Rfam assigns this 203-nucleotide RNA sequence from Struthidea cinerea to the family "Small nucleolar RNA SNORA74".
Its family is annotated with RNA processing and nucleolus in the Gene Ontology.
Pairs were carried over by alignment from the consensus structure, which was predicted with PFOLD.
On this family, see Ganot et al., Genes Dev 1997: "The family of box ACA small nucleolar RNAs is defined by an evolutionarily conserved secondary structure and ubiquitous sequence elements essential for RNA accumulation".
The family is grouped with related families in Rfam's "SNORA74 clan".
U19 belongs to the H/ACA class of snoRNAs. snoRNAs bind a number of proteins (including dyskerin, Gar1p and Nop10p in the case of the H/ACA class) to form snoRNP complexes.

[Rfam]
Nucleotides: 203
Base pairs, nucleotide, nucleotide: 001060002059003058004057005056006055007054008053009052011051012050015046016045017044018043019042020041021039022038023037068136071133073131074130082126084124087119090116092114094112095111096110097109099107100106138198140196141195142194143193144192145191154184155183156182158180159179160178161177162176163175
Number, partner (000 for none) and nucleotide at each position: 001060u002059c003058c004057a005056g006055u007054g008053g009052u010000a011051g012050u013000c014000a015046g016045c017044u018043g019042u020041c021039c022038a023037g024000a025000g026000c027000a028000a029000u030000a031000c032000u033000a034000u035000g036000c037023c038022u039021g040000u041020g042019a043018u044017a045016g046015u047000g048000u049000u050012a051011c052009a053008c054007u055006g056005c057004u058003g059002g060001g061000a062000g063000a064000u065000a066000a067000a068136g069000a070000u071133c072000a073131g074130u075000c076000a077000u078000u079000u080000c081000u082126u083000c084124u085000g086000g087119c088000u089000g090116c091000u092114g093000u094112u095111g096110u097109c098000a099107c100106c101000g102000u103000u104000c105000u106100g107099g108000a109097g110096a111095c112094a113000g114092c115000u116090g117000g118000u119087g120000c121000c122000a123000a124084g125000a126082a127000g128000a129000a130074g131073u132000g133071g134000c135000a136068u137000u138198g139000u140196g141195c142194u143193u144192c145191c146000c147000u148000g149000a150000g151000a152000g153000u154184g155183c156182a157000c158180u159179a160178g161177a162176g163175g164000u165000u166000c167000u168000c169000u170000u171000g172000c173000c174000c175163u176162c177161u178160u179159u180158a181000g182156u183155g184154c185000u186000a187000g188000u189000c190000u191145g192144g193143a194142a195141g196140c197000c198138u199000a200000c201000a202000c203000a